[Rfam]
RNA sequence: AAGGAGGAAUCCGAAAAUCCGAUAAAAGAGUAGGGA
Numbered sequence: 001a002a003g004g005a006g007g008a009a010u011c012c013g014a015a016a017a018u019c020c021g022a023u024a025a026a027a028g029a030g031u032a033g034g035g036a
Base pairs, nucleotide, nucleotide: 003020004019005018010035011034012033